[Rfam]
Shown here is a 119-nucleotide RNA sequence from Heyndrickxia sporothermodurans, a member of the family "PyrR binding site". About the family: This family represents the PyrR binding site and terminator structure. The family's RNA type in Rfam is cis-regulatory element. The family has 41 seed sequences and 1,498 matches in Rfam 15.1.
RNA sequence: AGCCCCUUUAAUACAGUCCUGUGAGGCUGAGAAGGAAACGGAUAUAGCGAAUUUAAGCUAUUAAUAGUUAGACAUGCAUUCGUCAACCCUCUCUCCUCUAGGUGAGAGGGUUUUUUAUC
Numbered sequence: 001a002g003c004c005c006c007u008u009u010a011a012u013a014c015a016g017u018c019c020u021g022u023g024a025g026g027c028u029g030a031g032a033a034g035g036a037a038a039c040g041g042a043u044a045u046a047g048c049g050a051a052u053u054u055a056a057g058c059u060a061u062u063a064a065u066a067g068u069u070a071g072a073c074a075u076g077c078a079u080u081c082g083u084c085a086a087c088c089c090u091c092u093c094u095c096c097u098c099u100a101g102g103u104g105a106g107a108g109g110g111u112u113u114u115u116u117a118u119c
Stems, first nucleotide, its partner, number of pairs: 005035005014029005050080003054076002057073001058071003062067001085112009095102002
Dot-bracket structure: ....(((((....(((((......))))).)))))..............(((.((.((((.(....).))).).)).)))....(((((((((.((....)).))))))))).......